[Rfam]
Shown here is a 90-nucleotide RNA from Simonsiella muelleri, a member of the family "Neisseria metabolic switch regulator b (RcoF1/NgncR163)". Gene Ontology terms of the family: tricarboxylic acid cycle, mRNA binding and regulation of translation, ncRNA-mediated. A search with the family's covariance model found it, with a score of 66 bits. Pairs were carried over by alignment from the consensus structure, which was predicted with RNAfold. From the family's description: Sibling sRNA described and independently named in three publications. Rfam classes the family as a small RNA.
RNA sequence: UCAUUAAGUGGUUGCAUGCUACUUAAUAGUUUCUCCUCUAUUUCUCCUUUGUAAAUAAACUUUGGCGCGUACUUCGGUACGCGCAUUUUU
Numbered sequence: 001u002c003a004u005u006a007a008g009u010g011g012u013u014g015c016a017u018g019c020u021a022c023u024u025a026a027u028a029g030u031u032u033c034u035c036c037u038c039u040a041u042u043u044c045u046c047c048u049u050u051g052u053a054a055a056u057a058a059a060c061u062u063u064g065g066c067g068c069g070u071a072c073u074u075c076g077g078u079a080c081g082c083g084c085a086u087u088u089u090u
Stems, first nucleotide, its partner, number of pairs: 003027009037055001039053003065084008